[Rfam]
RNA: Nitrogen stress-induced RNA 1
RNA sequence: UAGUAGAUGCACCCUGAUUAAUUAACUCCCGACCAAUUUUGGCCGGGAUUUUUUUU
Numbered sequence: 001u002a003g004u005a006g007a008u009g010c011a012c013c014c015u016g017a018u019u020a021a022u023u024a025a026c027u028c029c030c031g032a033c034c035a036a037u038u039u040u041g042g043c044c045g046g047g048a049u050u051u052u053u054u055u056u
Stems, first nucleotide, its partner, number of pairs: 003012002027048005033042003